[Rfam]
RNA sequence: GAGUCCAACAUAUAUGCAAGUAUUUGAGUGAAUAAACCCAAAUGCAAAAUAAAAGUGAAAAGGUGGGAAUAUAUAGCACCAUUGGCCAAUUAAUAAUAAUUGAGCAAGAGCAUACAUGUUGGGACCCGAAAGAUGGUGAACUAUGCCUGAAUAGGGUGAAGCCAGAGGAAACUCUGGUGGAGGCUCGUAGCGGUUCUGACGUGCAAAUCGAUCGUCGAAUUUGGGUAUAGGGGCGAAAGACUAAUCGAACCAUCUAGUAGCUGGUU
Numbered sequence: 001g002a003g004u005c006c007a008a009c010a011u012a013u014a015u016g017c018a019a020g021u022a023u024u025u026g027a028g029u030g031a032a033u034a035a036a037c038c039c040a041a042a043u044g045c046a047a048a049a050u051a052a053a054a055g056u057g058a059a060a061a062g063g064u065g066g067g068a069a070u071a072u073a074u075a076g077c078a079c080c081a082u083u084g085g086c087c088a089a090u091u092a093a094u095a096a097u098a099a100u101u102g103a104g105c106a107a108g109a110g111c112a113u114a115c116a117u118g119u120u121g122g123g124a125c126c127c128g129a130a131a132g133a134u135g136g137u138g139a140a141c142u143a144u145g146c147c148u149g150a151a152u153a154g155g156g157u158g159a160a161g162c163c164a165g166a167g168g169a170a171a172c173u174c175u176g177g178u179g180g181a182g183g184c185u186c187g188u189a190g191c192g193g194u195u196c197u198g199a200c201g202u203g204c205a206a207a208u209c210g211a212u213c214g215u216c217g218a219a220u221u222u223g224g225g226u227a228u229a230g231g232g233g234c235g236a237a238a239g240a241c242u243a244a245u246c247g248a249a250c251c252a253u254c255u256a257g258u259a260g261c262u263g264g265u266u
Stems, first nucleotide, its partner, number of pairs: 005122007013114005020045003025040002028037002049056002062083005085105002087102003091096001125264002128261001132254006141230011152218001154186004161178007190215004195211002198209002232242002

The record is a 266-nucleotide part of an RNA from Batrachochytrium dendrobatidis, which matches "Eukaryotic large subunit ribosomal RNA" in Rfam. Lineage of the source: Eukaryota > Chytridiomycetes > Rhizophydiales > Batrachochytrium > Batrachochytrium dendrobatidis. A reference for the family is Yusupov et al. (2001), "Crystal structure of the ribosome at 5.5 A resolution", Science.